[Rfam]
RNA: Fluoride riboswitch aptamer (crcB RNA motif)
RNA sequence: UGCAUAAAAGGAAAUGGUGUCUUCCUUCCCAAGAACCGCUCGCUACGGGCUGAUGGCGCCUACAAAUAG
Numbered sequence: 001u002g003c004a005u006a007a008a009a010g011g012a013a014a015u016g017g018u019g020u021c022u023u024c025c026u027u028c029c030c031a032a033g034a035a036c037c038g039c040u041c042g043c044u045a046c047g048g049g050c051u052g053a054u055g056g057c058g059c060c061u062a063c064a065a066a067u068a069g
Stems, first nucleotide, its partner, number of pairs: 010025004016060006038050004